RNA sequence: UGGCGCCCAACGUGAGAGCUCGAGUACGAGGGACACAGUGAGGGAUGCCAUCGAGGUCAGCCGGCGCAGAAGGAUUAAGAAACCCGGAGGAAAGAGCGUCGUGGGAGCCUGCCACGGACUCACGCUCCGGUAAGCGGACUGCGAAUAUGGGACAGGAAAUCAGCCAGCAUGAGUAAGUAAGGCUUUAAAGGCACGGGGAGUAAAGGUGAAAAUAAAACAGUUGUGUAAAUAUUUUGACUACAUUCAGGAUGUCUGCCCUU
Dot-bracket structure: .....(((...(((..........)))..)))....(((.......))..)................................(((.((....(((...(((((.......)))))..)))...)).)))....(.(..(.((....)).).).)....(.((((...............))).).)......(((((.((..((.((.........)).))......)).))))).........(((.(....).))).
Numbered sequence: 001u002g003g004c005g006c007c008c009a010a011c012g013u014g015a016g017a018g019c020u021c022g023a024g025u026a027c028g029a030g031g032g033a034c035a036c037a038g039u040g041a042g043g044g045a046u047g048c049c050a051u052c053g054a055g056g057u058c059a060g061c062c063g064g065c066g067c068a069g070a071a072g073g074a075u076u077a078a079g080a081a082a083c084c085c086g087g088a089g090g091a092a093a094g095a096g097c098g099u100c101g102u103g104g105g106a107g108c109c110u111g112c113c114a115c116g117g118a119c120u121c122a123c124g125c126u127c128c129g130g131u132a133a134g135c136g137g138a139c140u141g142c143g144a145a146u147a148u149g150g151g152a153c154a155g156g157a158a159a160u161c162a163g164c165c166a167g168c169a170u171g172a173g174u175a176a177g178u179a180a181g182g183c184u185u186u187a188a189a190g191g192c193a194c195g196g197g198g199a200g201u202a203a204a205g206g207u208g209a210a211a212a213u214a215a216a217a218c219a220g221u222u223g224u225g226u227a228a229a230u231a232u233u234u235u236g237a238c239u240a241c242a243u244u245c246a247g248g249a250u251g252u253c254u255g256c257c258c259u260u
Stems, first nucleotide, its partner, number of pairs: 006032003012027003037051001038048002084130003088126002094121003100116005135155001137153001140151001142149002160187001162185001163183003194236005200230002204222002207219002246259003250255001
Notes: The family of this 260-nucleotide sequence from Callithrix jacchus is "Mason-Pfizer monkey virus packaging signal". The family's consensus secondary structure was predicted with PFOLD. Rfam 15.1 lists 2,921 matches to the family in 53 species. Rfam describes the family as follows. This family represents a group of sequences that are related to the Mason-Pfizer monkey virus (MPMV) packaging signal. The packaging signal is located in the 5' UTR and is required for specific RNA encapsidation.